The record is a 136-nucleotide sequence from Leptolyngbya sp. FACHB-16, which matches "c-di-AMP riboswitch aptamer (ydaO/yuaA leader)" in Rfam. The pairing is the family consensus, mapped onto this sequence. Taxonomically the source falls in Leptolyngbya (Bacteria, Bacillati, Leptolyngbyales, Leptolyngbyaceae). It scores 68 bits against the family's covariance model.

[Rfam]
RNA sequence: GUCCUUAAAGGGCAGAGGCAGAAAAAGCGGGGGAACCAAGCUCAUGUAGCUCGUGGGGCGUAUCUGCGGAGAUUGCAGAGGGGUAUCUCUCAACCCUAGCCCGUCAGCUAACCUCGUAGGCAUUGAGAGAAGACAG
Numbered sequence: 001g002u003c004c005u006u007a008a009a010g011g012g013c014a015g016a017g018g019c020a021g022a023a024a025a026a027g028c029g030g031g032g033g034a035a036c037c038a039a040g041c042u043c044a045u046g047u048a049g050c051u052c053g054u055g056g057g058g059c060g061u062a063u064c065u066g067c068g069g070a071g072a073u074u075g076c077a078g079a080g081g082g083g084u085a086u087c088u089c090u091c092a093a094c095c096c097u098a099g100c101c102c103g104u105c106a107g108c109u110a111a112c113c114u115c116g117u118a119g120g121c122a123u124u125g126a127g128a129g130a131a132g133a134c135a136g
Base pairs, nucleotide, nucleotide: 005025006024027117028116029115030114031113032112037055038054056102057101058100064078065077066076067075081096082095083094084093